[Rfam]
RNA sequence: GCCAAUGAAACGUCGGCUAAAGUCUGGCACGUCCUGUGCCAAAUGCCGACGCUAGCACUUCCU
Numbered sequence: 001g002c003c004a005a006u007g008a009a010a011c012g013u014c015g016g017c018u019a020a021a022g023u024c025u026g027g028c029a030c031g032u033c034c035u036g037u038g039c040c041a042a043a044u045g046c047c048g049a050c051g052c053u054a055g056c057a058c059u060u061c062c063u
Stems, first nucleotide, its partner, number of pairs: 011051007026040005

The family of this 63-nucleotide RNA sequence from Peribacillus saganii is "Bacillaceae-1 RNA". It scores 39 bits against the family's covariance model. The base pairs follow the family's consensus structure, which is taken from published work. It is annotated as a small RNA. NCBI's taxonomy places the organism under Bacteria, Bacillota, Bacilli, Caryophanales, Peribacillus.